[Rfam]
RNA: Purine riboswitch aptamer
RNA sequence: AGUAGUCAGACAUAAAUAACUCGUAUAUCCUCUGAAUAUGGCAGAGAGUAUCUACCGGAAACCUUAAAUUUCCGACUAUGAGUGAUUUUGAUAUACUA
Numbered sequence: 001a002g003u004a005g006u007c008a009g010a011c012a013u014a015a016a017u018a019a020c021u022c023g024u025a026u027a028u029c030c031u032c033u034g035a036a037u038a039u040g041g042c043a044g045a046g047a048g049u050a051u052c053u054a055c056c057g058g059a060a061a062c063c064u065u066a067a068a069u070u071u072c073c074g075a076c077u078a079u080g081a082g083u084g085a086u087u088u089u090g091a092u093a094u095a096c097u098a
Base pairs, nucleotide, nucleotide: 019083020082021081022080023079024078025077030046031045032044033043034042056074057073058072059071060070061069